[Rfam]
RNA sequence: GUUGUUGUUGCUAUGAGUGUUACUUCGGUACCUAGGCUUUUUUGCACAAGUCAGGUACCUGAAGUAGCGCGCGUAGCGACAUCUG
Dot-bracket structure: ........((((.(..((((((.......(((..((((..........)))).)))........))))))..).)))).......
Record summary
The record is an 85-nucleotide RNA sequence from Psylliodes chrysocephalus, which matches "mir-275 microRNA precursor family" in Rfam. It scores 59 bits against the family's covariance model. For this family Rfam cites "The small RNA profile during Drosophila melanogaster development" (Aravin et al., Dev Cell, 2003).